[Rfam]
RNA sequence: UGACGACAAUCCACCUGCUACAUUGAGCUUUUGUGUGUCAGGCUUUUAGGUCGUCAUAGAUUAAACGGAGUUGUCUUAUGCCAGUGUGUAUUAUGCAGGUGGUCUGCUACUGUUCAUCCUGGACACUGAAAGACUCCACAGUU
Dot-bracket structure: (((((((......((((.((((...........)))).)))).......)))))))............((((.(......((((.(((.(...((((.......))).)...).))).)))).......).))))........

Rfam assigns this 143-nucleotide RNA sequence from Triplophysa tibetana to the family "Small nucleolar RNA SNORA79". The match comes from Rfam's covariance-model search (56 bits). The literature on the family includes a 2006 paper in RNA by Schattner et al., "A computational screen for mammalian pseudouridylation guide H/ACA RNAs". Its family is annotated with nucleolus and RNA processing in the Gene Ontology.